[Rfam]
RNA sequence: GGAGCGGGCUAGACGGCCGCGCGCGUUCACGCGUGAGGAAAGUCCGGACUCCACAGGGCAGGGUGCAGGCUAACAGCCUGGCGGGGCGACCCGACGGAAAGUGCCACAGAAAAGAAAACUCCCCCGCGCACGCGGGAGAAAAGCUGAAACGGUGCGGCAAGAGCGCACCAGCGUCACGGUGACGUGGCGGCUUGGCAAACCCCACCCGGAGCAAGGGCGAAUAGGAGCGGUCAAGGCUGGCCCGGCCGUCGCUCGGGUAUGCCCGCUCGAGGCCGUCGGCAACGGCGGUCCCAGAUAGAUGGCCGUCCUCGACAGAAUCCGGCUUACAGGCCCGCUCCUCGC
Numbered sequence: 001g002g003a004g005c006g007g008g009c010u011a012g013a014c015g016g017c018c019g020c021g022c023g024c025g026u027u028c029a030c031g032c033g034u035g036a037g038g039a040a041a042g043u044c045c046g047g048a049c050u051c052c053a054c055a056g057g058g059c060a061g062g063g064u065g066c067a068g069g070c071u072a073a074c075a076g077c078c079u080g081g082c083g084g085g086g087c088g089a090c091c092c093g094a095c096g097g098a099a100a101g102u103g104c105c106a107c108a109g110a111a112a113a114g115a116a117a118a119c120u121c122c123c124c125c126g127c128g129c130a131c132g133c134g135g136g137a138g139a140a141a142a143g144c145u146g147a148a149a150c151g152g153u154g155c156g157g158c159a160a161g162a163g164c165g166c167a168c169c170a171g172c173g174u175c176a177c178g179g180u181g182a183c184g185u186g187g188c189g190g191c192u193u194g195g196c197a198a199a200c201c202c203c204a205c206c207c208g209g210a211g212c213a214a215g216g217g218c219g220a221a222u223a224g225g226a227g228c229g230g231u232c233a234a235g236g237c238u239g240g241c242c243c244g245g246c247c248g249u250c251g252c253u254c255g256g257g258u259a260u261g262c263c264c265g266c267u268c269g270a271g272g273c274c275g276u277c278g279g280c281a282a283c284g285g286c287g288g289u290c291c292c293a294g295a296u297a298g299a300u301g302g303c304c305g306u307c308c309u310c311g312a313c314a315g316a317a318u319c320c321g322g323c324u325u326a327c328a329g330g331c332c333c334g335c336u337c338c339u340c341g342c
Stems, first nucleotide, its partner, number of pairs: 001338010012307007020035006040325003044322005049211004056243004061207005066080005081095001082093004096202002101200002103196003119138005125132002151169006171191001172189007215264004225254006235247004271290008